[Rfam]
RNA sequence: GCUCCCGAGGAGCGUUGCGACAGGUAGUGAAGCCAUCACCGCCUGCCAGGCUCGGGACCCGGUCGUACCGUCCUCCAAGACAAGCGACCGCAGCAACGGCGCUCACCCCAC
Numbered sequence: 001g002c003u004c005c006c007g008a009g010g011a012g013c014g015u016u017g018c019g020a021c022a023g024g025u026a027g028u029g030a031a032g033c034c035a036u037c038a039c040c041g042c043c044u045g046c047c048a049g050g051c052u053c054g055g056g057a058c059c060c061g062g063u064c065g066u067a068c069c070g071u072c073c074u075c076c077a078a079g080a081c082a083a084g085c086g087a088c089c090g091c092a093g094c095a096a097c098g099g100c101g102c103u104c105a106c107c108c109c110a111c
Stems, first nucleotide, its partner, number of pairs: 003057006021045005

Record summary
The record is a 111-nucleotide RNA from Rivibacter subsaxonicus, which matches "SAH (S-adenosyl-L-homocysteine) riboswitch aptamer" in Rfam. A search with the family's covariance model found it, with a score of 55 bits.